[Rfam]
RNA sequence: GUGUGUAAAAGCCAAACCCGUCGCGAGGCGGGGACGGAAAGUCACGGGUCUUGAAUUGUUAGUCAUGCUUGCUUG
Numbered sequence: 001g002u003g004u005g006u007a008a009a010a011g012c013c014a015a016a017c018c019c020g021u022c023g024c025g026a027g028g029c030g031g032g033g034a035c036g037g038a039a040a041g042u043c044a045c046g047g048g049u050c051u052u053g054a055a056u057u058g059u060u061a062g063u064c065a066u067g068c069u070u071g072c073u074u075g
Stems, first nucleotide, its partner, number of pairs: 012037002017032006043075001046073002048069001050067001055063003
This 75-nucleotide sequence from Methylomonas sp. LL1 belongs to the Rfam family "c-di-GMP-I riboswitch aptamer". The source organism's lineage runs through Bacteria, Pseudomonadati, Pseudomonadota, Methylococcales and Methylomonas. From the family's description: GEMM was predicted in a large-scale screen for bacterial structured RNA regulatory elements. Pairs were carried over by alignment from the consensus structure, which is taken from published work.